[Rfam]
A member of the RNA family "azaaromatic riboswitch aptamer (yjdF RNA)" from Bacillus benzoevorans, 103 nucleotides long.
RNA sequence: GAAACGGAAUGAAAAAACACGAUUCGGUUGGUAGUCCGAAUGCAACUUUGAAGUUGUCAGUAACCUUCCCCUCCUCGGGAUGUCCAUCAUUCCAAUAUUUUUU
Numbered sequence: 001g002a003a004a005c006g007g008a009a010u011g012a013a014a015a016a017a018c019a020c021g022a023u024u025c026g027g028u029u030g031g032u033a034g035u036c037c038g039a040a041u042g043c044a045a046c047u048u049u050g051a052a053g054u055u056g057u058c059a060g061u062a063a064c065c066u067u068c069c070c071c072u073c074c075u076c077g078g079g080a081u082g083u084c085c086a087u088c089a090u091u092c093c094a095a096u097a098u099u100u101u102u103u
Stems, first nucleotide, its partner, number of pairs: 006093006022041006042057006067080004
The organism belongs to Bacillus, within Bacteria.